The family of this 344-nucleotide RNA from Sulfurovum sp. AR is "Bacterial RNase P class A". From the family's description: Ribonuclease P (RNase P) is a ubiquitous endoribonuclease, found in archaea, bacteria and eukarya as well as chloroplasts and mitochondria. Lineage of the source: Bacteria > Pseudomonadati > Campylobacterota > Sulfurovaceae > Sulfurovum.
RNA sequence: UAAGGUGAAUAGGUAGUUGCUGGUGGUAUAAACCACGAGAGGAAAGUCCGGGCUGCAAGUGAGACAGAACUCCAUCUAACGGAUGGCCAGAGUGAUCUGAGGGCAAGUGCAACAGAAAGUAGGUAGCCACUUCGGUGGUGAUAGUGAAAGGGUGGGGUAAGAGCCCACCAGUGCUUAUGGUAACAUAGGUAGCUAGGUAAACCCUGUUCGCAGCAAGAAGUAUAUGGUAUAAGUCUCACAAGCUGUUAGAUCAGCACUCAUACUUUGCUUGAACGUAUUGGUAACAAUACGUCUAGAUAAAUAACUACCCACGACAGAACCCGGCUUAUCGUUCACCUUAUCUU
Numbered sequence: 001u002a003a004g005g006u007g008a009a010u011a012g013g014u015a016g017u018u019g020c021u022g023g024u025g026g027u028a029u030a031a032a033c034c035a036c037g038a039g040a041g042g043a044a045a046g047u048c049c050g051g052g053c054u055g056c057a058a059g060u061g062a063g064a065c066a067g068a069a070c071u072c073c074a075u076c077u078a079a080c081g082g083a084u085g086g087c088c089a090g091a092g093u094g095a096u097c098u099g100a101g102g103g104c105a106a107g108u109g110c111a112a113c114a115g116a117a118a119g120u121a122g123g124u125a126g127c128c129a130c131u132u133c134g135g136u137g138g139u140g141a142u143a144g145u146g147a148a149a150g151g152g153u154g155g156g157g158u159a160a161g162a163g164c165c166c167a168c169c170a171g172u173g174c175u176u177a178u179g180g181u182a183a184c185a186u187a188g189g190u191a192g193c194u195a196g197g198u199a200a201a202c203c204c205u206g207u208u209c210g211c212a213g214c215a216a217g218a219a220g221u222a223u224a225u226g227g228u229a230u231a232a233g234u235c236u237c238a239c240a241a242g243c244u245g246u247u248a249g250a251u252c253a254g255c256a257c258u259c260a261u262a263c264u265u266u267g268c269u270u271g272a273a274c275g276u277a278u279u280g281g282u283a284a285c286a287a288u289a290c291g292u293c294u295a296g297a298u299a300a301a302u303a304a305c306u307a308c309c310c311a312c313g314a315c316a317g318a319a320c321c322c323g324g325c326u327u328a329u330c331g332u333u334c335a336c337c338u339u340a341u342c343u344u
Stems, first nucleotide, its partner, number of pairs: 001340010011329001012309007020039002023036005044327003048324005053213004063244001065242001067209004072086005087101001088099004102204002107202002109198002124143002126139005151169006171193001172191008217266004227257002230254001236250002240246001273292008